[Rfam]
RNA sequence: UGGCUGUUACUUUCGGUUAUCUAGCUUUAUGACAGCCAUUUGAUUCAUACAGCUAGAUAACCAAAGAUAACAGCCU
Numbered sequence: 001u002g003g004c005u006g007u008u009a010c011u012u013u014c015g016g017u018u019a020u021c022u023a024g025c026u027u028u029a030u031g032a033c034a035g036c037c038a039u040u041u042g043a044u045u046c047a048u049a050c051a052g053c054u055a056g057a058u059a060a061c062c063a064a065a066g067a068u069a070a071c072a073g074c075c076u
Stems, first nucleotide, its partner, number of pairs: 002075004007070003011066003015062012028049005